Rfam assigns this 87-nucleotide RNA sequence from Candidatus Accumulibacter adjunctus to the family "Burkholderia RNA 7 (anti-hemB)". Rfam links the family to the GO terms protein binding and bacterial biofilm matrix. Rfam 15.1 lists 479 matches to the family in 458 species. From the family's description: This RNA motif was identified by computational search in b-proteobacteria Burkholderia. Co-purified with Hfq, expression confirmed by Northern blot.
RNA sequence: UCUCCCGCUUCACCUCCCUGAGCGGGUGCCUUAUUCCCUUAAGGCAUGUCCUGCCCCCGGCUCCCCCCUUUGCCGGGGGUUUUUUUU
Number, nucleotide and partner (000 for none) at each position: 001u000002c000003u000004c026005c025006c024007g023008c022009u021010u000011c000012a000013c000014c000015u000016c000017c000018c000019u000020g000021a009022g008023c007024g006025g005026g004027u000028g045029c044030c043031u042032u041033a040034u000035u000036c000037c000038c000039u000040u033041a032042a031043g030044g029045c028046a000047u000048g000049u000050c000051c000052u000053g000054c079055c078056c077057c076058c075059g074060g073061c072062u000063c000064c000065c000066c000067c000068c000069u000070u000071u000072g061073c060074c059075g058076g057077g056078g055079g054080u000081u000082u000083u000084u000085u000086u000087u000
Taxonomically the source falls in Candidatus Accumulibacter (Bacteria, Pseudomonadati, Pseudomonadota, Betaproteobacteria). It is annotated as a small RNA. A reference for the family is Weinberg et al. (2007), "Identification of 22 candidate structured RNAs in bacteria using the CMfinder comparative genomics pipeline", Nucleic Acids Res.